[Rfam]
RNA sequence: UCCAUCGCGAGGUGGAAUCUGAAAGAAGCCCGAGGCAAACCUUUGGUCCGACGAACAGAAACUUCGUUAGGUAUUUGCAAGUGGAUAAGGCUGCACUACAAGCUGAAGUCCCAAAGCUACCCAGAACUUGUGGUGUAAACGAAGCGGACACAUGAAGGGAAAGAUUAAGUC
Numbered sequence: 001u002c003c004a005u006c007g008c009g010a011g012g013u014g015g016a017a018u019c020u021g022a023a024a025g026a027a028g029c030c031c032g033a034g035g036c037a038a039a040c041c042u043u044u045g046g047u048c049c050g051a052c053g054a055a056c057a058g059a060a061a062c063u064u065c066g067u068u069a070g071g072u073a074u075u076u077g078c079a080a081g082u083g084g085a086u087a088a089g090g091c092u093g094c095a096c097u098a099c100a101a102g103c104u105g106a107a108g109u110c111c112c113a114a115a116g117c118u119a120c121c122c123a124g125a126a127c128u129u130g131u132g133g134u135g136u137a138a139a140c141g142a143a144g145c146g147g148a149c150a151c152a153u154g155a156a157g158g159g160a161a162a163g164a165u166u167a168a169g170u171c
Stems, first nucleotide, its partner, number of pairs: 001016006028171001030169001036163001040158006046149005062144005071136003075132001077131006083111004089104004